About this RNA: The family of this 74-nucleotide RNA sequence from Streptomyces sp. Amel2xC10 is "tRNA". The organism belongs to Streptomyces, within Bacteria.
[Rfam]
RNA sequence: ACGCCUGUAGCCCAACUGGUCAGAGGCCCCGCCUUAAAAGCGGCCAAGUGCGAGUUCGAAUCUCGUCGGGCGUA
Dot-bracket structure: (((((((...(.(.........).)...((((.......))))......(((((.......)))))))))))).